[Rfam]
The family of this 86-nucleotide RNA sequence from Branchiostoma belcheri is "mir-2060 microRNA precursor family". It scores 82 bits against the family's covariance model. The family's consensus secondary structure was predicted with RNAalifold. Taxonomically the source falls in Branchiostoma (Eukaryota, Metazoa, Leptocardii, Branchiostomatidae).
RNA sequence: GUUCGUGGAUUGUGUUCAGCACUAAGGACAGGUGUGUUUACCUGUGUGUGGAUGGUGUUCAGCAUCAAGGACAGGUAUGUUUGCCU
Numbered sequence: 001g002u003u004c005g006u007g008g009a010u011u012g013u014g015u016u017c018a019g020c021a022c023u024a025a026g027g028a029c030a031g032g033u034g035u036g037u038u039u040a041c042c043u044g045u046g047u048g049u050g051g052a053u054g055g056u057g058u059u060c061a062g063c064a065u066c067a068a069g070g071a072c073a074g075g076u077a078u079g080u081u082u083g084c085c086u
Stems, first nucleotide, its partner, number of pairs: 001072002010067001012065005018059007026047001028045007